[Rfam]
RNA sequence: UCGGUUGCACGUCAGUGGACCGACGUCAGGGAGCGCCAAGCUUCUUGGCGCGCCUCAUUUCUAUGUUGCUCAAAGGAGGACCUAGCUAUGAGAA
Number, nucleotide and partner (000 for none) at each position: 001u023002c022003g021004g020005u019006u018007g000008c017009a016010c000011g000012u000013c000014a000015g000016u009017g008018g006019a005020c004021c003022g002023a001024c000025g000026u000027c000028a000029g000030g053031g000032a000033g051034c050035g049036c048037c047038a046039a045040g000041c000042u000043u000044c000045u039046u038047g037048g036049c035050g034051c033052g000053c030054c092055u091056c090057a089058u088059u000060u000061c085062u084063a083064u000065g081066u080067u079068g000069c078070u077071c076072a000073a000074a000075g000076g071077a070078g069079g067080a066081c065082c000083u063084a062085g061086c000087u000088a058089u057090g056091a055092g054093a000094a000
RNA: Repression of heat shock gene expression (ROSE) element
Organism: Phyllobacterium sp. YR620